[Rfam]
RNA sequence: AUGGUGUAUUCCGAAAAACCAAAGAGUAGGAA
Numbered sequence: 001a002u003g004g005u006g007u008a009u010u011c012c013g014a015a016a017a018a019c020c021a022a023a024g025a026g027u028a029g030g031a032a
Stems, first nucleotide, its partner, number of pairs: 002021004010031003
Overview:
This 32-nucleotide RNA from Flavobacteria bacterium BAL38 belongs to the Rfam family "DUF805b RNA". The sequence is in the family's curated seed alignment. NCBI's taxonomy places the organism under Bacteria, Pseudomonadati, Bacteroidota, Flavobacteriia, Flavobacteriales. The family's consensus secondary structure is taken from published work.